About this RNA:
This 305-nucleotide RNA from Amphiprion percula belongs to the Rfam family "Nuclear RNase P". From the family's description: Ribonuclease P (RNase P) is a ubiquitous endoribonuclease, found in archaea, bacteria and eukarya as well as chloroplasts and mitochondria. Rfam classes the family as a ribozyme.
[Rfam]
RNA sequence: GUGGGCGGAAGCUCAUUGUAGAGGUCACAUGCUGAGUGCUUGUCACUCCACCAAUCACCUCGGGGAAGGUCUGAGACUGGAGCCAAUGGUUGCCUUAGCAGGGCAUCACCUGAUUCGGGUGAGUGAGUGAACAGAAAGAAAGGGCCGCAGCGAACCUGUUAACACAGGAGAAGCCAGAUGGAGCAGUUAUCUCCGCUGGUGGAUGUGAGGCUCGCAGGCUUGGAAUCACUCGCGGCUGGCGAAUGAGUGCGAUGUAUGAGGUGGAGCACCGCUCCAGAACCCAAUUCAGACUACUCUCCUCCCAC
Numbered sequence: 001g002u003g004g005g006c007g008g009a010a011g012c013u014c015a016u017u018g019u020a021g022a023g024g025u026c027a028c029a030u031g032c033u034g035a036g037u038g039c040u041u042g043u044c045a046c047u048c049c050a051c052c053a054a055u056c057a058c059c060u061c062g063g064g065g066a067a068g069g070u071c072u073g074a075g076a077c078u079g080g081a082g083c084c085a086a087u088g089g090u091u092g093c094c095u096u097a098g099c100a101g102g103g104c105a106u107c108a109c110c111u112g113a114u115u116c117g118g119g120u121g122a123g124u125g126a127g128u129g130a131a132c133a134g135a136a137a138g139a140a141a142g143g144g145c146c147g148c149a150g151c152g153a154a155c156c157u158g159u160u161a162a163c164a165c166a167g168g169a170g171a172a173g174c175c176a177g178a179u180g181g182a183g184c185a186g187u188u189a190u191c192u193c194c195g196c197u198g199g200u201g202g203a204u205g206u207g208a209g210g211c212u213c214g215c216a217g218g219c220u221u222g223g224a225a226u227c228a229c230u231c232g233c234g235g236c237u238g239g240c241g242a243a244u245g246a247g248u249g250c251g252a253u254g255u256a257u258g259a260g261g262u263g264g265a266g267c268a269c270c271g272c273u274c275c276a277g278a279a280c281c282c283a284a285u286u287c288a289g290a291c292u293a294c295u296c297u298c299c300u301c302c303c304a305c
Base pairs, nucleotide, nucleotide: 001305002304003303004302007299008298009297012260013259014258015257016256021061022060023059024058034048035047036046037045038044071289072288073287074286075285081237082236083235084234091105092104093103094102095101106122107121108120109119110118111117123233124232125231126230127229128228129227144219145218146217262276263275264274265273266272267271